This 101-nucleotide sequence belongs to the Rfam family "PhotoRC-II RNA".

[Rfam]
RNA sequence: UAACCCUGCGUACAACUGCUCUUAAACCGAGACCUAUAGGCAGUCUAAUACUUCGUCUCUCAUAUCCAUCAGUGAAGGGAUUGAUGGAAAUAUAAGUUUCG
Dot-bracket structure: ...............(((((..((....[[[[[...)))))))...........]]]]]......(((((((........)))))))..............